Shown here is a 264-nucleotide RNA from Streptomyces carminius, a member of the family "Streptomyces sRNA 4677". The source organism's lineage runs through Bacteria, Bacillati, Actinomycetota, Kitasatosporales and Streptomyces. Rfam's curators write: Located in the intergenic region between anti-sigma factor SCO4677 gene and a putative regulatory protein gene SCO4676. scr4677 expression requires the SCO4677 activity and scr4677 sRNA itself seem to affect the levels of the SCO4676-associated transcripts.
RNA sequence: AGUCGCGGCGAGGCACGGCGUCAGAAGCUUUCAAGGACCCGGGGGAGAACCUCACCCAACCCAACCCUGUCUGCCGUCCGUCACCCGCACGGGUGAUCGGGGUCGGCAGGGCUGGACUCUGAGGCGGUCGGGCGGAAUAGGCUCACCGCGGAGCGCAGCACCUGCGCCACCGAACGUCGCCACAACCGCAGACAUGCGACGGCCCCCGGCGGGACUGCCAUCCCGGUCGAGGGCCUGACCACCCAGGAAGACAGGACCUUCCCG
Numbered sequence: 001a002g003u004c005g006c007g008g009c010g011a012g013g014c015a016c017g018g019c020g021u022c023a024g025a026a027g028c029u030u031u032c033a034a035g036g037a038c039c040c041g042g043g044g045g046a047g048a049a050c051c052u053c054a055c056c057c058a059a060c061c062c063a064a065c066c067c068u069g070u071c072u073g074c075c076g077u078c079c080g081u082c083a084c085c086c087g088c089a090c091g092g093g094u095g096a097u098c099g100g101g102g103u104c105g106g107c108a109g110g111g112c113u114g115g116a117c118u119c120u121g122a123g124g125c126g127g128u129c130g131g132g133c134g135g136a137a138u139a140g141g142c143u144c145a146c147c148g149c150g151g152a153g154c155g156c157a158g159c160a161c162c163u164g165c166g167c168c169a170c171c172g173a174a175c176g177u178c179g180c181c182a183c184a185a186c187c188g189c190a191g192a193c194a195u196g197c198g199a200c201g202g203c204c205c206c207c208g209g210c211g212g213g214a215c216u217g218c219c220a221u222c223c224c225g226g227u228c229g230a231g232g233g234c235c236u237g238a239c240c241a242c243c244c245a246g247g248a249a250g251a252c253a254g255g256a257c258c259u260u261c262c263c264g
Base pairs, nucleotide, nucleotide: 007243008242010240017075018074019073020072081096082095083094084093085092086091111171113169114168115167201235202234203233204232205231207229208228211224212223213222214221246262247261248260249259250258